[Rfam]
RNA: Bacterial RNase P class A
RNA sequence: AAAGUAGGUGAGGCAGUUGCGGACUCAAUAUCUUGGGUCUGAGGAAAGUCCGGGCUCCCAAAAGACCAAGCUUGCUGGAUAACGCCCAGUGCGAGCGAUCGUGAGGAUAGUGCCACAGAAAAAUACCGCCCUGGAGAUGAGAUAUUAUUCAAGUCUCUGAGGUAAGGGUGCAAAGGUGUGGUAAGAGCGCACCAGCAGUAUCGUGAGGUACUGGCUAGGUAAACCCCGGCGGGGAGCAAGGUCGGAGGGGCAAUGGUUGGUCUUUUUCCAGCUCCGUUGUUAAGUGUACCGCUAGAGGUGUCUGGUAACAGGCGUCCCAGAUAGAUAAUUGCCCUCUUAGCUACUUUCAGUUAAGGGAACAGAACCCGGCUUACUUCCUACUUUUUCC
Numbered sequence: 001a002a003a004g005u006a007g008g009u010g011a012g013g014c015a016g017u018u019g020c021g022g023a024c025u026c027a028a029u030a031u032c033u034u035g036g037g038u039c040u041g042a043g044g045a046a047a048g049u050c051c052g053g054g055c056u057c058c059c060a061a062a063a064g065a066c067c068a069a070g071c072u073u074g075c076u077g078g079a080u081a082a083c084g085c086c087c088a089g090u091g092c093g094a095g096c097g098a099u100c101g102u103g104a105g106g107a108u109a110g111u112g113c114c115a116c117a118g119a120a121a122a123a124u125a126c127c128g129c130c131c132u133g134g135a136g137a138u139g140a141g142a143u144a145u146u147a148u149u150c151a152a153g154u155c156u157c158u159g160a161g162g163u164a165a166g167g168g169u170g171c172a173a174a175g176g177u178g179u180g181g182u183a184a185g186a187g188c189g190c191a192c193c194a195g196c197a198g199u200a201u202c203g204u205g206a207g208g209u210a211c212u213g214g215c216u217a218g219g220u221a222a223a224c225c226c227c228g229g230c231g232g233g234g235a236g237c238a239a240g241g242u243c244g245g246a247g248g249g250g251c252a253a254u255g256g257u258u259g260g261u262c263u264u265u266u267u268c269c270a271g272c273u274c275c276g277u278u279g280u281u282a283a284g285u286g287u288a289c290c291g292c293u294a295g296a297g298g299u300g301u302c303u304g305g306u307a308a309c310a311g312g313c314g315u316c317c318c319a320g321a322u323a324g325a326u327a328a329u330u331g332c333c334c335u336c337u338u339a340g341c342u343a344c345u346u347u348c349a350g351u352u353a354a355g356g357g358a359a360c361a362g363a364a365c366c367c368g369g370c371u372u373a374c375u376u377c378c379u380a381c382u383u384u385u386u387c388c
Stems, first nucleotide, its partner, number of pairs: 001384008010374001012333007020041009046372003050369005055236004064269001070230002073228002075089004090104001091102004105226002110224002112220003126167002128163003132159007175193006195215001196213007240290003250280005260274001263271002297316008